[Rfam]
RNA sequence: AUAUUUAACUAGGGGUGCCACUUUCGGCUGAGAGAUGGAUUGUACCAUUAACCCUUUGAACCUGAAGUAGUUAGAACUACCGUAGGAAAGUUAUUUUCUUUUAGA
Numbered sequence: 001a002u003a004u005u006u007a008a009c010u011a012g013g014g015g016u017g018c019c020a021c022u023u024u025c026g027g028c029u030g031a032g033a034g035a036u037g038g039a040u041u042g043u044a045c046c047a048u049u050a051a052c053c054c055u056u057u058g059a060a061c062c063u064g065a066a067g068u069a070g071u072u073a074g075a076a077c078u079a080c081c082g083u084a085g086g087a088a089a090g091u092u093a094u095u096u097u098c099u100u101u102u103a104g105a
Stems, first nucleotide, its partner, number of pairs: 006093005011055004017028003035048004061086004067080004
This 105-nucleotide RNA sequence from Paraclostridium benzoelyticum belongs to the Rfam family "TPP riboswitch aptamer (THI element)". A search with the family's covariance model found it, with a score of 73 bits. Taxonomically the source falls in Paraclostridium (Bacteria, Bacillota, Peptostreptococcales, Peptostreptococcaceae). The base pairs follow the family's consensus structure, which is taken from published work.